[Rfam]
RNA sequence: ACUGAGGAAUGAUGACACUAAAAGGCCGAAUUGCAGUGUGCCCCCUGGCAGUUGGCUCUCUCUGGGUACACGAUGACAAAACCUCCUGAAGCGAACCUCUGGUCUGACCUCAGU
Numbered sequence: 001a002c003u004g005a006g007g008a009a010u011g012a013u014g015a016c017a018c019u020a021a022a023a024g025g026c027c028g029a030a031u032u033g034c035a036g037u038g039u040g041c042c043c044c045c046u047g048g049c050a051g052u053u054g055g056c057u058c059u060c061u062c063u064g065g066g067u068a069c070a071c072g073a074u075g076a077c078a079a080a081a082c083c084u085c086c087u088g089a090a091g092c093g094a095a096c097c098u099c100u101g102g103u104c105u106g107a108c109c110u111c112a113g114u
Base pairs, nucleotide, nucleotide: 001114002113003112004111005110006109007108014104015103016102025034026033035100036099038097042093043091046088047087048086051071052070055067056066057065058064072085073084075082
Small nucleolar RNA SNORD89: a 114-nucleotide sequence from Bos taurus.
For this family Rfam cites "RNomics: an experimental approach that identifies 201 candidates for novel, small, non-messenger RNAs in mouse" (Huttenhofer et al., EMBO J, 2001).
Lineage of the source: Eukaryota > Euteleostomi > Dipnotetrapodomorpha > Artiodactyla > Bos.
snoRNA HBII-289 belongs to the family of C/D snoRNAs.
It is annotated as a C/D-box small nucleolar RNA.
Its family is annotated with RNA processing and nucleolus in the Gene Ontology.
The sequence is in the family's curated seed alignment.